RNA sequence: UGGGAUCCGUCCCAUUGAAAGGAAUGUAGCUUUUUAAAAAAAAGCCGAACCUUAGG
Numbered sequence: 001u002g003g004g005a006u007c008c009g010u011c012c013c014a015u016u017g018a019a020a021g022g023a024a025u026g027u028a029g030c031u032u033u034u035u036a037a038a039a040a041a042a043a044g045c046c047g048a049a050c051c052u053u054a055g056g
Stems, first nucleotide, its partner, number of pairs: 001014005020052003029045005